The record is a 63-nucleotide RNA from Mangrovibacillus cuniculi, which matches "Ribosomal protein L13 leader" in Rfam. The literature on the family includes a 1994 paper in Prog Nucleic Acid Res Mol Biol by Zengel and Lindahl, "Diverse mechanisms for regulating ribosomal protein synthesis in Escherichia coli". Gene Ontology term of the family: regulation of gene expression. It is annotated as a cis-regulatory leader. A search with the family's covariance model found it, with a score of 49 bits. Rfam describes the family as follows. This family is a putative r-protein leader autoregulatory structure found in B. subtilis and other low-GC Gram-positive bacteria.
RNA sequence: GGUAUGUAUUUAACCCCACGAUGAGCCCCGGAAACUCUUUCGUGUUGAACAGAUAAAUACAAA
Dot-bracket structure: ......((((((....(((((.(((.........)))..))))).........))))))....